The family of this 107-nucleotide RNA sequence from Plutella xylostella is "mir-8517 microRNA precursor family". The base pairs follow the family's consensus structure, which was predicted with RNAalifold. A search with the family's covariance model found it, with a score of 73 bits. Its family is annotated with RISC complex and miRNA-mediated post-transcriptional gene silencing in the Gene Ontology.
RNA sequence: UUAUAGCACGUUUUAGCUUAUUUAACUGUUUUGUCACUCUCUGACAGAGACAAUUUGUUCUUUGAUAGAGAGGGACAAAACAAUUUAAUAGUCAAAAUACCUAUAAU
Numbered sequence: 001u002u003a004u005a006g007c008a009c010g011u012u013u014u015a016g017c018u019u020a021u022u023u024a025a026c027u028g029u030u031u032u033g034u035c036a037c038u039c040u041c042u043g044a045c046a047g048a049g050a051c052a053a054u055u056u057g058u059u060c061u062u063u064g065a066u067a068g069a070g071a072g073g074g075a076c077a078a079a080a081c082a083a084u085u086u087a088a089u090a091g092u093c094a095a096a097a098u099a100c101c102u103a104u105a106a107u
Stems, first nucleotide, its partner, number of pairs: 001106006011097004016092002019090004024085002027082003030069007049059004